[Rfam]
RNA: ffh sRNA
Organism: Aureimonas jatrophae
Nucleotides: 052
Stems, first nucleotide, its partner, number of pairs: 016044007025035004
Number, partner (000 for none) and nucleotide at each position: 001000c002000c003000g004000c005000g006000u007000g008000g009000a010000g011000g012000u013000c014000c015000c016044c017043a018042u019041c020040c021039g022038c023000c024000a025035g026034c027033g028032a029000g030000u031000g032028u033027c034026g035025c036000c037000c038022g039021c040020g041019g042018a043017u044016g045000c046000g047000a048000u049000g050000a051000u052000c